Notes
Rfam assigns this 137-nucleotide sequence from Triticum aestivum to the family "Small nucleolar RNA Z247". Rfam links the family to the GO terms nucleolus and RNA processing. The match comes from Rfam's covariance-model search (42 bits). On this family, see Chen et al., Nucleic Acids Res 2003: "The high diversity of snoRNAs in plants: identification and comparative study of 120 snoRNA genes from Oryza sativa". The base pairs follow the family's consensus structure, which was predicted with PFOLD.
RNA sequence: CAUGUCCAGAGGAGAGAUCGUCUCCCAGGUUUUGGCCGGCCUCGAUCUCGACUACAACCCGGUCGUGUCGGCGCUUGCUGCGCGGGUUGAACCCGUGACUGUUCAGGAGUUGUACACGCAGCUUCUCAGCUUUGACG
Number, nucleotide and partner (000 for none) at each position: 001c000002a000003u000004g136005u135006c134007c000008a132009g000010a000011g000012g000013a000014g000015a000016g000017a000018u000019c000020g000021u000022c000023u000024c000025c000026c000027a000028g000029g000030u000031u000032u000033u000034g000035g000036c000037c000038g000039g000040c000041c000042u000043c000044g000045a000046u000047c000048u000049c000050g000051a000052c000053u000054a000055c000056a000057a000058c000059c000060c000061g000062g000063u000064c000065g000066u000067g000068u000069c000070g000071g000072c000073g000074c000075u000076u000077g000078c000079u000080g000081c000082g000083c000084g000085g000086g000087u106088u105089g104090a103091a102092c101093c000094c000095g000096u000097g000098a000099c000100u000101g092102u091103u090104c089105a088106g087107g000108a000109g000110u000111u000112g000113u000114a000115c000116a000117c000118g000119c000120a000121g000122c000123u000124u000125c000126u000127c000128a000129g000130c000131u000132u008133u000134g006135a005136c004137g000
Rfam classes the family as a C/D-box small nucleolar RNA.